The record is a 98-nucleotide RNA sequence from Lepisosteus oculatus, which matches "mir-210 microRNA precursor family" in Rfam.
RNA sequence: CCUAGAGGCAGGUUAGCCGCUGUCACACGCACAGUGGAGUCCAGUACAAGCGCAAUGUGCGUUAGUCAGUGGCUUACCUGCCUCUGGAAAACAGACAU
Numbered sequence: 001c002c003u004a005g006a007g008g009c010a011g012g013u014u015a016g017c018c019g020c021u022g023u024c025a026c027a028c029g030c031a032c033a034g035u036g037g038a039g040u041c042c043a044g045u046a047c048a049a050g051c052g053c054a055a056u057g058u059g060c061g062u063u064a065g066u067c068a069g070u071g072g073c074u075u076a077c078c079u080g081c082c083u084c085u086g087g088a089a090a091a092c093a094g095a096c097a098u
Stems, first nucleotide, its partner, number of pairs: 005084008015074008024065001025063001028061006035054002

The base pairs follow the family's consensus structure, which was predicted with WAR.